[Rfam]
RNA sequence: UCGUCAGUGAGGUACAUCCUUACCUGUUACUCCUCUCGAGGAGUUUCAGAACAUGAUGAUUGGAGACACAUGAGAUAUGAUUAUUAUCUCCGUCUUGUAGGGAACAGCAACACCCUACAAGGUCCCAUCUGAU
Numbered sequence: 001u002c003g004u005c006a007g008u009g010a011g012g013u014a015c016a017u018c019c020u021u022a023c024c025u026g027u028u029a030c031u032c033c034u035c036u037c038g039a040g041g042a043g044u045u046u047c048a049g050a051a052c053a054u055g056a057u058g059a060u061u062g063g064a065g066a067c068a069c070a071u072g073a074g075a076u077a078u079g080a081u082u083a084u085u086a087u088c089u090c091c092g093u094c095u096u097g098u099a100g101g102g103a104a105c106a107g108c109a110a111c112a113c114c115c116u117a118c119a120a121g122g123u124c125c126c127a128u129c130u131g132a133u
Stems, first nucleotide, its partner, number of pairs: 024049003029044005072090002075087003078083001094122003100116003
Background
The family of this 133-nucleotide RNA sequence from Betta splendens is "U8 small nucleolar RNA". A search with the family's covariance model found it, with a score of 108 bits. For this family Rfam cites "The U8 snoRNA gene family: identification and characterization of distinct, functional U8 genes in Xenopus" (Peculis et al., Gene, 2001). Its family is annotated with RNA processing and nucleolus in the Gene Ontology. Lineage of the source: Eukaryota > Metazoa > Teleostei > Ctenosquamata > Betta. The family's RNA type in Rfam is C/D-box small nucleolar RNA. The family has 55 seed sequences and 1,597 matches in Rfam 15.1.